[Rfam]
RNA: Group II catalytic intron D1-D4-1
RNA sequence: CCCAACGGUUGGCAACAAGCGUUGACGGGGGUAGAAGUCAGCCGAGGCCAUAGUAGCCAAACGCCAGUCUGUAAUGGGCCGGACUCUGGUGUUGGGC
Dot-bracket structure: .(.((((.(((....))).))))).............((....)).(((......(((........(((............)))...)))....)))
Numbered sequence: 001c002c003c004a005a006c007g008g009u010u011g012g013c014a015a016c017a018a019g020c021g022u023u024g025a026c027g028g029g030g031g032u033a034g035a036a037g038u039c040a041g042c043c044g045a046g047g048c049c050a051u052a053g054u055a056g057c058c059a060a061a062c063g064c065c066a067g068u069c070u071g072u073a074a075u076g077g078g079c080c081g082g083a084c085u086c087u088g089g090u091g092u093u094g095g096g097c
Stems, first nucleotide, its partner, number of pairs: 002024001004023004009018003038045002047097003056090003067084003